RNA sequence: AGGGGUCACAAGUUUGAGGCUAUAGCAGAAAUAGUCAUGGCAUGGUCUGUCAGAUUCCAGUAAAUCUGCAAACUCUGCU
Numbered sequence: 001a002g003g004g005g006u007c008a009c010a011a012g013u014u015u016g017a018g019g020c021u022a023u024a025g026c027a028g029a030a031a032u033a034g035u036c037a038u039g040g041c042a043u044g045g046u047c048u049g050u051c052a053g054a055u056u057c058c059a060g061u062a063a064a065u066c067u068g069c070a071a072a073c074u075c076u077g078c079u
Stems, first nucleotide, its partner, number of pairs: 018047004024079006031043002051068006
The record is a 79-nucleotide sequence from Crocodylus porosus, which matches "Mammalian CPEB3 ribozyme" in Rfam. Its family is annotated with RNA nuclease activity in the Gene Ontology.